[Rfam]
RNA sequence: CGACACGGUGACGCCCGCCGCCAAGUAGUUAAAAACCCCCAGGGAAAUUCCCCUCCCCAACCCCACCCGCCUCCCCGCCGCCGCCUGUCACUCUCCGGAGUGAACAUGGCCAACUGGGCUGGAUUCGGUGCCGGUUGCCCGGCAUAUGCUCGCCGCGACAACACCGAGUGACGGCCGGGGCAACACACGGUCACCCGUCACUCGCGACGCACAUACGACGGCCCCCGGCCGGGAGUAGCGAUCCCGAUCGAGGGCCUGACCACCUAGGAAGACUGCAACUUCCCG
Numbered sequence: 001c002g003a004c005a006c007g008g009u010g011a012c013g014c015c016c017g018c019c020g021c022c023a024a025g026u027a028g029u030u031a032a033a034a035a036c037c038c039c040c041a042g043g044g045a046a047a048u049u050c051c052c053c054u055c056c057c058c059a060a061c062c063c064c065a066c067c068c069g070c071c072u073c074c075c076c077g078c079c080g081c082c083g084c085c086u087g088u089c090a091c092u093c094u095c096c097g098g099a100g101u102g103a104a105c106a107u108g109g110c111c112a113a114c115u116g117g118g119c120u121g122g123a124u125u126c127g128g129u130g131c132c133g134g135u136u137g138c139c140c141g142g143c144a145u146a147u148g149c150u151c152g153c154c155g156c157g158a159c160a161a162c163a164c165c166g167a168g169u170g171a172c173g174g175c176c177g178g179g180g181c182a183a184c185a186c187a188c189g190g191u192c193a194c195c196c197g198u199c200a201c202u203c204g205c206g207a208c209g210c211a212c213a214u215a216c217g218a219c220g221g222c223c224c225c226c227g228g229c230c231g232g233g234a235g236u237a238g239c240g241a242u243c244c245c246g247a248u249c250g251a252g253g254g255c256c257u258g259a260c261c262a263c264c265u266a267g268g269a270a271g272a273c274u275g276c277a278a279c280u281u282c283c284c285g
Stems, first nucleotide, its partner, number of pairs: 007264004017078002020075001088103006118195001120193003220256005226250002231245004267283005

A member of the RNA family "Streptomyces sRNA 4677" from Streptomyces sp. Ag109_O5-10, 285 nucleotides long. The source organism's lineage runs through Bacteria, Bacillati, Actinomycetota, Actinomycetes and Streptomyces. Located in the intergenic region between anti-sigma factor SCO4677 gene and a putative regulatory protein gene SCO4676. scr4677 expression requires the SCO4677 activity and scr4677 sRNA itself seem to affect the levels of the SCO4676-associated transcripts. It is annotated as a small RNA.